[Rfam]
RNA sequence: AGGUGCACUCGCAGCUGUAAGCCAGGGGCGGCAGUGUU
Numbered sequence: 001a002g003g004u005g006c007a008c009u010c011g012c013a014g015c016u017g018u019a020a021g022c023c024a025g026g027g028g029c030g031g032c033a034g035u036g037u038u
Stems, first nucleotide, its partner, number of pairs: 008025002011022002